[Rfam]
RNA sequence: GCGAUGAGCUGAAUUGUGUAAGUCGCUAGACACGCCUUUGGCAAUGCGCUAUGUGGAGUGCAGUCUAACGCCUCAAUACGCAAGAUGUCUCUUUUUAAGAGGCAUC
Numbered sequence: 001g002c003g004a005u006g007a008g009c010u011g012a013a014u015u016g017u018g019u020a021a022g023u024c025g026c027u028a029g030a031c032a033c034g035c036c037u038u039u040g041g042c043a044a045u046g047c048g049c050u051a052u053g054u055g056g057a058g059u060g061c062a063g064u065c066u067a068a069c070g071c072c073u074c075a076a077u078a079c080g081c082a083a084g085a086u087g088u089c090u091c092u093u094u095u096u097a098a099g100a101g102g103c104a105u106c
Stems, first nucleotide, its partner, number of pairs: 014076003018072001024070002027067005034042002045062002048059003084106009